[Rfam]
RNA sequence: AAAUGUAAGUAGAAGCACCCGCUUCUCGCCUCGUGGUUAACGCUGCCUGGCCGAUACGUAAAUAAACCAAGCCUGAGAAAGGUUUGGGUAUUUAACGGGUGCGCAUUGCGUGCCCGUUAUUUGUUUGGGUA
Dot-bracket structure: ..........((((((....)))))).(((..(((((....)))))..)))..........................................((((((((((.....)))))))))).............
Numbered sequence: 001a002a003a004u005g006u007a008a009g010u011a012g013a014a015g016c017a018c019c020c021g022c023u024u025c026u027c028g029c030c031u032c033g034u035g036g037u038u039a040a041c042g043c044u045g046c047c048u049g050g051c052c053g054a055u056a057c058g059u060a061a062a063u064a065a066a067c068c069a070a071g072c073c074u075g076a077g078a079a080a081g082g083u084u085u086g087g088g089u090a091u092u093u094a095a096c097g098g099g100u101g102c103g104c105a106u107u108g109c110g111u112g113c114c115c116g117u118u119a120u121u122u123g124u125u126u127g128g129g130u131a
Stems, first nucleotide, its partner, number of pairs: 011026006028051003033046005094118010
This 131-nucleotide RNA from Secundilactobacillus mixtipabuli belongs to the Rfam family "Ribosomal protein L20 leader". This family is a putative r-protein leader autoregulatory structure found in B. subtilis and other low-GC Gram-positive bacteria. Gene Ontology term of the family: regulation of gene expression. The base pairs follow the family's consensus structure, which was predicted with CMfinder. The match comes from Rfam's covariance-model search (61 bits). Taxonomically the source falls in Secundilactobacillus (Bacteria, Bacillati, Bacillota, Bacilli).